[Rfam]
RNA sequence: AAUUAAAAUUUUCAUCUAUUUCUACUAUAAAAUAUUAGUAUGGCUGACAAAAUAACCAGACAGUUAUAUGUGGUGUGCCAUGUGUACCUUAAGUUGACAUAGAAAGACCAGUUUUUAGCAAUAAAAAUAGAUGGAUUUUUUAACA
Numbered sequence: 001a002a003u004u005a006a007a008a009u010u011u012u013c014a015u016c017u018a019u020u021u022c023u024a025c026u027a028u029a030a031a032a033u034a035u036u037a038g039u040a041u042g043g044c045u046g047a048c049a050a051a052a053u054a055a056c057c058a059g060a061c062a063g064u065u066a067u068a069u070g071u072g073g074u075g076u077g078c079c080a081u082g083u084g085u086a087c088c089u090u091a092a093g094u095u096g097a098c099a100u101a102g103a104a105a106g107a108c109c110a111g112u113u114u115u116u117a118g119c120a121a122u123a124a125a126a127a128u129a130g131a132u133g134g135a136u137u138u139u140u141u142a143a144c145a
Base pairs, nucleotide, nucleotide: 003143004142005141006140007139008138011135012134013133014132015131016130018128019127020126021125023123024122026120028118030116031115032114
Rfam assigns this 145-nucleotide RNA from Gossypium gossypioides to the family "MIR7502 microRNA precursor family". The organism belongs to Gossypium, within Eukaryota. Its family is annotated with miRNA-mediated post-transcriptional gene silencing and RISC complex in the Gene Ontology.